[Rfam]
RNA sequence: GGGGAGUGAUGAGGCGUUAUCGCUCGCAAUUAAAAUAUGCGAGAUGAGUGUCUGCCUAAAGCUUUACGACAAUCAGGCACCUCCAGUCUUAACCAUCUGAUCCC
Numbered sequence: 001g002g003g004g005a006g007u008g009a010u011g012a013g014g015c016g017u018u019a020u021c022g023c024u025c026g027c028a029a030u031u032a033a034a035a036u037a038u039g040c041g042a043g044a045u046g047a048g049u050g051u052c053u054g055c056c057u058a059a060a061g062c063u064u065u066a067c068g069a070c071a072a073u074c075a076g077g078c079a080c081c082u083c084c085a086g087u088c089u090u091a092a093c094c095a096u097c098u099g100a101u102c103c104c
Stems, first nucleotide, its partner, number of pairs: 001104004016093003023043005046082001048080005064072001
This 104-nucleotide RNA sequence from Lactuca sativa belongs to the Rfam family "Small nucleolar RNA Z279/snoR105/snoR108". For this family Rfam cites "Experimental RNomics: identification of 140 candidates for small non-messenger RNAs in the plant Arabidopsis thaliana" (Marker et al., Curr Biol, 2002). Rfam's curators write: This family includes the plant snoRNAs known as Z279, snoR105 and snoR108.